[Rfam]
RNA sequence: GGGACGCGCAAAGGACCGCUCAUACUUGAAUGCAGCCCUAGACAUACUUAUGUUGUACAUAAGUAUCCUGCUGUAGGGAAAGUCCCCGGGCAACUUUCGGCGCUGAAUCCUGAAAGGGUCUCCUAUGGAGGUAGCGGUAGCCUUUGGAGGAGCGACAGGGUUCUAUGGAUCUCCCUGCUUGGUCAUGGUGUAUUAUGGAGCGGUAUGCGUAUGGGUAGGCUCUCGCAUACGUUGAUUCUAUCGGAAAGCGGGUCUCUGUGUAGGGACAGAUCCGCGUAUGUGAAAGCCUCAACGAUAUGCAUAUACUAACCAUGCGCGCUAUGGCCUUGAUGAGCAAGGGUGUACUAUAGAACGUUGUGAGUCUGUGCUAUUGGAAGCAACAAGCGUGAUGUGGGCGGAAACGCAGUAGAUGUGCGAAGAUACGAGCCGCUACUGCUGCACUGCGUACGUCGCGUGGAGCUGGAUCGCACUGCACCUCUGCAAAGGAGGAACUACUGGCUAUCGCUGUAGGAGGGCAUGUGAAUGCGUUCGCGCCACACGUUCGUCACAUCUAUACAGUUAUGCGGUCGCCGACAUGUGCGGUAACACAAUGGGGCUUACUCUUGUGCGUCC
Numbered sequence: 001g002g003g004a005c006g007c008g009c010a011a012a013g014g015a016c017c018g019c020u021c022a023u024a025c026u027u028g029a030a031u032g033c034a035g036c037c038c039u040a041g042a043c044a045u046a047c048u049u050a051u052g053u054u055g056u057a058c059a060u061a062a063g064u065a066u067c068c069u070g071c072u073g074u075a076g077g078g079a080a081a082g083u084c085c086c087c088g089g090g091c092a093a094c095u096u097u098c099g100g101c102g103c104u105g106a107a108u109c110c111u112g113a114a115a116g117g118g119u120c121u122c123c124u125a126u127g128g129a130g131g132u133a134g135c136g137g138u139a140g141c142c143u144u145u146g147g148a149g150g151a152g153c154g155a156c157a158g159g160g161u162u163c164u165a166u167g168g169a170u171c172u173c174c175c176u177g178c179u180u181g182g183u184c185a186u187g188g189u190g191u192a193u194u195a196u197g198g199a200g201c202g203g204u205a206u207g208c209g210u211a212u213g214g215g216u217a218g219g220c221u222c223u224c225g226c227a228u229a230c231g232u233u234g235a236u237u238c239u240a241u242c243g244g245a246a247a248g249c250g251g252g253u254c255u256c257u258g259u260g261u262a263g264g265g266a267c268a269g270a271u272c273c274g275c276g277u278a279u280g281u282g283a284a285a286g287c288c289u290c291a292a293c294g295a296u297a298u299g300c301a302u303a304u305a306c307u308a309a310c311c312a313u314g315c316g317c318g319c320u321a322u323g324g325c326c327u328u329g330a331u332g333a334g335c336a337a338g339g340g341u342g343u344a345c346u347a348u349a350g351a352a353c354g355u356u357g358u359g360a361g362u363c364u365g366u367g368c369u370a371u372u373g374g375a376a377g378c379a380a381c382a383a384g385c386g387u388g389a390u391g392u393g394g395g396c397g398g399a400a401a402c403g404c405a406g407u408a409g410a411u412g413u414g415c416g417a418a419g420a421u422a423c424g425a426g427c428c429g430c431u432a433c434u435g436c437u438g439c440a441c442u443g444c445g446u447a448c449g450u451c452g453c454g455u456g457g458a459g460c461u462g463g464a465u466c467g468c469a470c471u472g473c474a475c476c477u478c479u480g481c482a483a484a485g486g487a488g489g490a491a492c493u494a495c496u497g498g499c500u501a502u503c504g505c506u507g508u509a510g511g512a513g514g515g516c517a518u519g520u521g522a523a524u525g526c527g528u529u530c531g532c533g534c535c536a537c538a539c540g541u542u543c544g545u546c547a548c549a550u551c552u553a554u555a556c557a558g559u560u561a562u563g564c565g566g567u568c569g570c571c572g573a574c575a576u577g578u579g580c581g582g583u584a585a586c587a588c589a590a591u592g593g594g595g596c597u598u599a600c601u602c603u604u605g606u607g608c609g610u611c612c
Stems, first nucleotide, its partner, number of pairs: 002612010014568006031075006046064008080598003084595004101118001386539003393534001395532003401528004412518004505511002570582003
RNA: RNase MRP